RNA: Small nucleolar RNA U49
RNA sequence: GGCCGAUGAGGAAGAAAUCCCAGGAAUAGGAAGUGCCGUAUGACACUUUUAAAAAAUGCAGCCGA
Numbered sequence: 001g002g003c004c005g006a007u008g009a010g011g012a013a014g015a016a017a018u019c020c021c022a023g024g025a026a027u028a029g030g031a032a033g034u035g036c037c038g039u040a041u042g043a044c045a046c047u048u049u050u051a052a053a054a055a056a057u058g059c060a061g062c063c064g065a
Stems, first nucleotide, its partner, number of pairs: 014059001030049006